[Rfam]
RNA: Purine riboswitch aptamer
RNA sequence: AAUUAACUAAGAUUAAUAGCUCAUAUAAUUUUGGCGAUAGGGGUCAUAAGUUUCUACCAAGAUACCGUAAACAUCUUGACUAUGAGUAUAUAUAAUUGAAGA
Numbered sequence: 001a002a003u004u005a006a007c008u009a010a011g012a013u014u015a016a017u018a019g020c021u022c023a024u025a026u027a028a029u030u031u032u033g034g035c036g037a038u039a040g041g042g043g044u045c046a047u048a049a050g051u052u053u054c055u056a057c058c059a060a061g062a063u064a065c066c067g068u069a070a071a072c073a074u075c076u077u078g079a080c081u082a083u084g085a086g087u088a089u090a091u092a093u094a095a096u097u098g099a100a101g102a
Stems, first nucleotide, its partner, number of pairs: 019087007029049002032046004058078006